Description:
The family of this 66-nucleotide RNA sequence from Massilia forsythiae is "Fluoride riboswitch aptamer (crcB RNA motif)". Rfam links the family to the GO terms positive regulation of gene expression and response to fluoride. The base pairs follow the family's consensus structure, which is taken from published work.
[Rfam]
RNA sequence: ACUUUAAUUGGAGAUGGCAUUCCUCCCGUAACCGCUCAAUCCCGAGCUGAUGAUGCCUACCUUUCC
Numbered sequence: 001a002c003u004u005u006a007a008u009u010g011g012a013g014a015u016g017g018c019a020u021u022c023c024u025c026c027c028g029u030a031a032c033c034g035c036u037c038a039a040u041c042c043c044g045a046g047c048u049g050a051u052g053a054u055g056c057c058u059a060c061c062u063u064u065c066c
Base pairs, nucleotide, nucleotide: 010026011025012024013023016057017056018055019054020053021052034047035046036045037044